[Rfam]
Rfam assigns this 87-nucleotide RNA sequence from Paenibacillus ferrarius to the family "c-di-GMP-I riboswitch aptamer". The family's consensus secondary structure is taken from published work.

RNA sequence: AUUCGAAAAUGGCAAACUUGUCGAAAGACAAGGACGCAAAGCUGAGGGUCUACGGUUCCCGCGAACUAUGACAGCCUGGUUACCGAA
Numbered sequence: 001a002u003u004c005g006a007a008a009a010u011g012g013c014a015a016a017c018u019u020g021u022c023g024a025a026a027g028a029c030a031a032g033g034a035c036g037c038a039a040a041g042c043u044g045a046g047g048g049u050c051u052a053c054g055g056u057u058c059c060c061g062c063g064a065a066c067u068a069u070g071a072c073a074g075c076c077u078g079g080u081u082a083c084c085g086a087a
Stems, first nucleotide, its partner, number of pairs: 012037002017032006040081004045077003048072003055066004
Dot-bracket structure: ...........((...((((((....))))))...))..((((.((((((....((((....))))...)))..)))))))......

It scores 88 bits against the family's covariance model.